[Rfam]
RNA: L31-Firmicutes ribosomal protein leader
RNA sequence: CUAUGAUCUGAAAUAUUGGUCAUGGCAAAGGAG
Numbered sequence: 001c002u003a004u005g006a007u008c009u010g011a012a013a014u015a016u017u018g019g020u021c022a023u024g025g026c027a028a029a030g031g032a033g
Stems, first nucleotide, its partner, number of pairs: 001025008